[Rfam]
RNA sequence: UGCAGGUGCUAAGUAGUGGUGCCGCAGGUAACCCAAUUGUGAUUACCUGCUGUCUGCUGCUUACCAUUUGUA
Numbered sequence: 001u002g003c004a005g006g007u008g009c010u011a012a013g014u015a016g017u018g019g020u021g022c023c024g025c026a027g028g029u030a031a032c033c034c035a036a037u038u039g040u041g042a043u044u045a046c047c048u049g050c051u052g053u054c055u056g057c058u059g060c061u062u063a064c065c066a067u068u069u070g071u072a
Base pairs, nucleotide, nucleotide: 001072002071003070004069005068006067007066010063011062012061013060014059015058016057017056018055019054024050025049026048027047028046029045030044
Shown here is a 72-nucleotide RNA from Cylicostephanus goldi, a member of the family "mir-252 microRNA precursor family".
A search with the family's covariance model found it, with a score of 66 bits.
The literature on the family includes a 2009 paper in BMC Genomics by Li et al., "Direct sequencing and expression analysis of a large number of miRNAs in Aedes aegypti and a multi-species survey of novel mosquito miRNAs".
Clan: mir-252 microRNA precursor family.
The base pairs follow the family's consensus structure, which was predicted with RNAalifold.